The family of this 87-nucleotide RNA sequence from Salarchaeum sp. JOR-1 is "eL15-Euryarchaeota ribosomal protein leader". The match comes from Rfam's covariance-model search (37 bits). A reference for the family is Eckert and Weinberg (2020), "Discovery of 20 novel ribosomal leader candidates in bacteria and archaea", BMC Microbiol.

RNA sequence: CCCGUUUCGACGGGACGAAAUGUGGACUGACGGGACGCCUCGCGUCCCGAUCGAGCGGCGUACGCCGCGACACGUCUGAAUCGCAAG
Numbered sequence: 001c002c003c004g005u006u007u008c009g010a011c012g013g014g015a016c017g018a019a020a021u022g023u024g025g026a027c028u029g030a031c032g033g034g035a036c037g038c039c040u041c042g043c044g045u046c047c048c049g050a051u052c053g054a055g056c057g058g059c060g061u062a063c064g065c066c067g068c069g070a071c072a073c074g075u076c077u078g079a080a081u082c083g084c085a086a087g
Stems, first nucleotide, its partner, number of pairs: 001014005016083003024077004